[Rfam]
RNA sequence: GGACGUGAGGGCGAUCUGGCUAUAACAUCUGUCACCCCACUAAUUGGCAGGGUUGAUCUGGCUGAUCUGGCUGCCUAGGAAGGUCUCCCCUUUCUCUCUCAACACUCCACAUGUGUCCCUCCUGAAGCUGCGCAUUCAGUCGAAGAGGACGACCUCCCGAACAGAGAUGGUACCAUUCACGGGUCAAGGGUAUAUGGUAGCUGUGCUCCCAAGGUAGAACCUCCAAACACUCUCAAGGUCCAUUUGUAGGAGAGCACAGGGCAGUCAAGCUUCCAAGACUGCAGAGACAUCCAAGUGAGGCACUGCAUGGGGCAGUUUGCCAUUGGUU
Numbered sequence: 001g002g003a004c005g006u007g008a009g010g011g012c013g014a015u016c017u018g019g020c021u022a023u024a025a026c027a028u029c030u031g032u033c034a035c036c037c038c039a040c041u042a043a044u045u046g047g048c049a050g051g052g053u054u055g056a057u058c059u060g061g062c063u064g065a066u067c068u069g070g071c072u073g074c075c076u077a078g079g080a081a082g083g084u085c086u087c088c089c090c091u092u093u094c095u096c097u098c099u100c101a102a103c104a105c106u107c108c109a110c111a112u113g114u115g116u117c118c119c120u121c122c123u124g125a126a127g128c129u130g131c132g133c134a135u136u137c138a139g140u141c142g143a144a145g146a147g148g149a150c151g152a153c154c155u156c157c158c159g160a161a162c163a164g165a166g167a168u169g170g171u172a173c174c175a176u177u178c179a180c181g182g183g184u185c186a187a188g189g190g191u192a193u194a195u196g197g198u199a200g201c202u203g204u205g206c207u208c209c210c211a212a213g214g215u216a217g218a219a220c221c222u223c224c225a226a227a228c229a230c231u232c233u234c235a236a237g238g239u240c241c242a243u244u245u246g247u248a249g250g251a252g253a254g255c256a257c258a259g260g261g262c263a264g265u266c267a268a269g270c271u272u273c274c275a276a277g278a279c280u281g282c283a284g285a286g287a288c289a290u291c292c293a294a295g296u297g298a299g300g301c302a303c304u305g306c307a308u309g310g311g312g313c314a315g316u317u318u319g320c321c322a323u324u325g326g327u328u
Stems, first nucleotide, its partner, number of pairs: 001108003006101006013093002018090002025086001027084004032079002036073001037070003043066003046062001048060001116170002119166003122139004127135001140160003147157003200270003206264002209261002213257001221252004227247003293328002297323001299321003302316005
Overview: A member of the RNA family "7SK RNA" from Onychorhynchus coronatus, 328 nucleotides long. About the family: 7SK was discovered as an abundant small nuclear RNA in the mid-70s but a possible function has only recently been suggested. Two independent studies have found that 7SK RNA binds the CDK9/cyclin T complex (known as elongation factor P-TEFb). P-TEFb activates transcription by phosphorylating the C-terminal domain of RNA polymerase II. This process is negatively regulated by the 7SK RNP. The secondary structure of 7SK RNA shown here was proposed by Wasserman and Steitz on the basis of chemical modification and enzymatic cleavage experiments. This family contains a number of annotated pseudogenes and 7SK derived repeats. Clan: 7SK clan.